Rfam assigns this 59-nucleotide sequence to the family "psbNH RNA". The family's consensus secondary structure is taken from published work.
[Rfam]
RNA sequence: GGGUGAAGUUCAGUCCCGAUACUGUAAGGGUCCUGGCCCUGAUAAGGGCCGAUCCUGUC
Numbered sequence: 001g002g003g004u005g006a007a008g009u010u011c012a013g014u015c016c017c018g019a020u021a022c023u024g025u026a027a028g029g030g031u032c033c034u035g036g037c038c039c040u041g042a043u044a045a046g047g048g049c050c051g052a053u054c055c056u057g058u059c
Stems, first nucleotide, its partner, number of pairs: 027056005034051007